[Rfam]
RNA sequence: UAGGAGAAGCCGAAAAUCCUAUAAAGAGUAGGUA
Numbered sequence: 001u002a003g004g005a006g007a008a009g010c011c012g013a014a015a016a017u018c019c020u021a022u023a024a025a026g027a028g029u030a031g032g033u034a
Stems, first nucleotide, its partner, number of pairs: 002020004009033003